[Rfam]
RNA sequence: AACCUCAUUCUUAGUGAGAAGGGCACUGUGGGUCAUAUUGUCCAGAGUUUGUUAAUGGGGCUAAAUUGAGACCCAGGUUCUGCUUACAUCACAGUAAGUAUAUUGCAAUGGUGCUAAUGAGACUGCUCUUAUU
Numbered sequence: 001a002a003c004c005u006c007a008u009u010c011u012u013a014g015u016g017a018g019a020a021g022g023g024c025a026c027u028g029u030g031g032g033u034c035a036u037a038u039u040g041u042c043c044a045g046a047g048u049u050u051g052u053u054a055a056u057g058g059g060g061c062u063a064a065a066u067u068g069a070g071a072c073c074c075a076g077g078u079u080c081u082g083c084u085u086a087c088a089u090c091a092c093a094g095u096a097a098g099u100a101u102a103u104u105g106c107a108a109u110g111g112u113g114c115u116a117a118u119g120a121g122a123c124u125g126c127u128c129u130u131a132u133u
Stems, first nucleotide, its partner, number of pairs: 003060002006057003021043005074125003087113005
The record is a 133-nucleotide sequence from Ovis aries, which matches "Small nucleolar RNA SNORA1" in Rfam. Taxonomically the source falls in Ovis (Eukaryota, Eumetazoa, Teleostomi, Theria). Rfam 15.1 lists 1,282 matches to the family in 515 species. The base pairs follow the family's consensus structure, which was predicted with PFOLD. Rfam's curators write: ACA1 is a member of the H/ACA class of snoRNA that guide the sites of modification of uridines to pseudouridines.